[Rfam]
RNA sequence: AGAUCGGCUUCCACGACGGCAACGUUCUGGGGGCCUUUUUCUUUUGU
Dot-bracket structure: .....(((((((..((((....))))..)))))))............

A member of the RNA family "ctRNA" from Falsochrobactrum ovis, 47 nucleotides long. It scores 61 bits against the family's covariance model. Pairs were carried over by alignment from the consensus structure, which is taken from published work. Lineage of the source: Bacteria > Pseudomonadota > Hyphomicrobiales > Brucellaceae > Falsochrobactrum. Rfam classes the family as an antisense RNA. For this family Rfam cites "Two discrete elements are required for the replication of a repABC plasmid: an antisense RNA and a stem-loop structure" (Venkova-Canova et al., Mol Microbiol, 2004). Rfam's curators write: This family represents a group of ctRNAs (or counter-transcribed RNAs) from p42d and related plasmids. ctRNAs are small, highly structured, antisense sequences which are involved in negative regulation. Members of this family are known to bind to the mRNA of repC causing translational repression. The family has 10 seed sequences and 245 matches in Rfam 15.1.